[Rfam]
The record is a 54-nucleotide RNA sequence from Oncorhynchus tshawytscha, which matches "UnaL2 LINE 3' element" in Rfam.
On this family, see Baba et al., RNA 2004: "Solution structure of an RNA stem-loop derived from the 3' conserved region of eel LINE UnaL2".
The family's consensus secondary structure is taken from published work.
Rfam classes the family as a cis-regulatory element.
Taxonomically the source falls in Oncorhynchus (Eukaryota, Chordata, Gnathostomata, Teleostei).
Rfam's curators write: The eel long interspersed element (LINE) UnaL2 and its partner short interspersed element (SINE) share a conserved 3' tail containing a stem-loop that is critical for their retrotransposition. Presumably, the first step of retrotransposition is the recognition of their 3' tails by UnaL2-encoded reverse transcriptase. The solution structure of a 17-nucleotide RNA derived from the 3' tail of UnaL2 was determined by NMR.
RNA sequence: UCCACUCACUGCUGUAAGUUGCUCUGGAUAAGAGUGUCUGCUAAAUAACUAAAA
Numbered sequence: 001u002c003c004a005c006u007c008a009c010u011g012c013u014g015u016a017a018g019u020u021g022c023u024c025u026g027g028a029u030a031a032g033a034g035u036g037u038c039u040g041c042u043a044a045a046u047a048a049c050u051a052a053a054a
Stems, first nucleotide, its partner, number of pairs: 013043001014041003020036006